[Rfam]
RNA sequence: AAGCCAGGAUAAUGUAGUCUUAAUCGUUCUGAAAUACGAAAAAUGUUGUGGAAAUCGCGUGAAAUAAUCAGAGGAAUCGUUUGAAAUCAUCGUAGUAAUCGCGCGAAAAUCACGUGAAAUAAUCAGAGGAAUCGUUUGAAAUCAUCGUAGUAAUCGCGCGAAAAUCACGUGAAAUAAUCAGAGGAAUCGUUUGAAAUCAUCGUAGUAAUCGCGCGAAAAUCACGUGAAAUAAUCAGAGGAAUCGUUUGAAAUCAUCGUAGUAAUCGCGCGAAAAUCACGUGAAAUAAUCAGAGGAAUCGUUUGAAAUCAUCGUAGUAAUCGCGCGAAAAUCACGUGAAAUAAUCAGAGGAAUCGUUUGAAAUCAUCGUAGUAAUCGCGCGAAAAUCACGUGAAAUAAUCAGAGGAAUCGUUUGAAAUCAUCGUAGUAAUCGCGCGAAAAUCGCGUGAAAUAAUCAGAGGAAUCGUUUGAAAUCAUCGUAGUAAUCGCGCGAAAAUCGCGUGAAAUAAUCAGAGGAAUCGUUUGAAAUCAUCGUAGUAAUCGCGCGAAAAUCGCGUGAAAUACUAUGGUAGACGGUUUGAGUAAAUUAAUGGAGUAUUUUAAU
Numbered sequence: 001a002a003g004c005c006a007g008g009a010u011a012a013u014g015u016a017g018u019c020u021u022a023a024u025c026g027u028u029c030u031g032a033a034a035u036a037c038g039a040a041a042a043a044u045g046u047u048g049u050g051g052a053a054a055u056c057g058c059g060u061g062a063a064a065u066a067a068u069c070a071g072a073g074g075a076a077u078c079g080u081u082u083g084a085a086a087u088c089a090u091c092g093u094a095g096u097a098a099u100c101g102c103g104c105g106a107a108a109a110u111c112a113c114g115u116g117a118a119a120u121a122a123u124c125a126g127a128g129g130a131a132u133c134g135u136u137u138g139a140a141a142u143c144a145u146c147g148u149a150g151u152a153a154u155c156g157c158g159c160g161a162a163a164a165u166c167a168c169g170u171g172a173a174a175u176a177a178u179c180a181g182a183g184g185a186a187u188c189g190u191u192u193g194a195a196a197u198c199a200u201c202g203u204a205g206u207a208a209u210c211g212c213g214c215g216a217a218a219a220u221c222a223c224g225u226g227a228a229a230u231a232a233u234c235a236g237a238g239g240a241a242u243c244g245u246u247u248g249a250a251a252u253c254a255u256c257g258u259a260g261u262a263a264u265c266g267c268g269c270g271a272a273a274a275u276c277a278c279g280u281g282a283a284a285u286a287a288u289c290a291g292a293g294g295a296a297u298c299g300u301u302u303g304a305a306a307u308c309a310u311c312g313u314a315g316u317a318a319u320c321g322c323g324c325g326a327a328a329a330u331c332a333c334g335u336g337a338a339a340u341a342a343u344c345a346g347a348g349g350a351a352u353c354g355u356u357u358g359a360a361a362u363c364a365u366c367g368u369a370g371u372a373a374u375c376g377c378g379c380g381a382a383a384a385u386c387a388c389g390u391g392a393a394a395u396a397a398u399c400a401g402a403g404g405a406a407u408c409g410u411u412u413g414a415a416a417u418c419a420u421c422g423u424a425g426u427a428a429u430c431g432c433g434c435g436a437a438a439a440u441c442g443c444g445u446g447a448a449a450u451a452a453u454c455a456g457a458g459g460a461a462u463c464g465u466u467u468g469a470a471a472u473c474a475u476c477g478u479a480g481u482a483a484u485c486g487c488g489c490g491a492a493a494a495u496c497g498c499g500u501g502a503a504a505u506a507a508u509c510a511g512a513g514g515a516a517u518c519g520u521u522u523g524a525a526a527u528c529a530u531c532g533u534a535g536u537a538a539u540c541g542c543g544c545g546a547a548a549a550u551c552g553c554g555u556g557a558a559a560u561a562c563u564a565u566g567g568u569a570g571a572c573g574g575u576u577u578g579a580g581u582a583a584a585u586u587a588a589u590g591g592a593g594u595a596u597u598u599u600a601a602u
Base pairs, nucleotide, nucleotide: 004591005590006589010587011586012585013584015582016581018579019578022576023575024574025573026572027571028570035050036049037048038047039046055392056391057390058389059388060387061386062385068084069083070082071081072080074078099381100380101379102378103377104376105375106374109371110370112368113367114366115364116363117362123359124358125357126356127355129353130352132350133349135347136346137345138344139343142337143336144335146334147333148332150330151329154326155325156324157323158322159321160320161319164316165315167313168312169311170309171308172307178304179303180302181301182300184298185297187295188294190292191291192290193289194288197282198281199280201279202278203277205275206274209271210270211269212268213267214266215265216264219261220260222258223257224256225254226253227252233249234248235247236246237245239243398524399523400522401521402520404518405517407515408514410512411511412510413509414508429447430446431445432444433443434442435441436440453469454468455467456466457465459463484502485501486500487499488498489497490496491495529568530567531566532565533564534563535562536561537560539557540556541555542554543553544552545551546550
RNA: tsr1 small RNA